[Rfam]
The record is a 115-nucleotide sequence from Mucilaginibacter oryzae, which matches "SAM riboswitch aptamer (S box leader)" in Rfam.
RNA sequence: GACUUAUCAAGAAAGACUGAGGGAAAGGCCCAUAGACGUCUUAGCAACCUGUGCAUCAGCAAAAUGCAUAAGGUGCUAAUUCCUGCUCCUGUGCAAAACGGGAGAGAGAUAAUUA
Numbered sequence: 001g002a003c004u005u006a007u008c009a010a011g012a013a014a015g016a017c018u019g020a021g022g023g024a025a026a027g028g029c030c031c032a033u034a035g036a037c038g039u040c041u042u043a044g045c046a047a048c049c050u051g052u053g054c055a056u057c058a059g060c061a062a063a064a065u066g067c068a069u070a071a072g073g074u075g076c077u078a079a080u081u082c083c084u085g086c087u088c089c090u091g092u093g094c095a096a097a098a099c100g101g102g103a104g105a106g107a108g109a110u111a112a113u114u115a
Base pairs, nucleotide, nucleotide: 002114004112005111006110007109008108013042014041015040016039017038021031022030023029026084027083028082043077044076045075046074048073049072051069052068053067054066055065056064081107086104087103088102089101090100091099